[Rfam]
RNA sequence: UUAGCUAUUUUUGAUACCGUUUGUACCCAUCAUUGCGUACAAACGUAAAACAAAUUUGUUUGUAUCAGUGAUGGCUAAAGCAUUUUGUGAUGUCUAGCCAUUUAUAUAAAUAAGUGGCUAGGGUUCAGGUAUAUCAUUUUAUCAAAUUCCACCGCCACUUAUUUAUACAAUGAGUGGCGGUUUUAUUUAUACAA
Numbered sequence: 001u002u003a004g005c006u007a008u009u010u011u012u013g014a015u016a017c018c019g020u021u022u023g024u025a026c027c028c029a030u031c032a033u034u035g036c037g038u039a040c041a042a043a044c045g046u047a048a049a050a051c052a053a054a055u056u057u058g059u060u061u062g063u064a065u066c067a068g069u070g071a072u073g074g075c076u077a078a079a080g081c082a083u084u085u086u087g088u089g090a091u092g093u094c095u096a097g098c099c100a101u102u103u104a105u106a107u108a109a110a111u112a113a114g115u116g117g118c119u120a121g122g123g124u125u126c127a128g129g130u131a132u133a134u135c136a137u138u139u140u141a142u143c144a145a146a147u148u149c150c151a152c153c154g155c156c157a158c159u160u161a162u163u164u165a166u167a168c169a170a171u172g173a174g175u176g177g178c179g180g181u182u183u184u185a186u187u188u189a190u191a192c193a194a
Stems, first nucleotide, its partner, number of pairs: 001078007011068006019044008028035002048061004082147004087142004095133001096119006103112003149180001
The family of this 194-nucleotide RNA sequence from Salinicoccus roseus is "Enterococcus sRNA 2410". The literature on the family includes a 2017 paper in Sci Rep by Sinel et al., "Small RNAs in vancomycin-resistant Enterococcus faecium involved in daptomycin response and resistance". Rfam 15.1 lists 74 matches to the family in 56 species. Lineage of the source: Bacteria > Bacilli > Caryophanales > Staphylococcaceae > Salinicoccus. The base pairs follow the family's consensus structure, which was predicted with RNAfold. Produced as 2 transcripts on Northern blot. Expressed in mid, late exponential and early stationary phases of growth. Expression remained uniform under daptomycin exposure.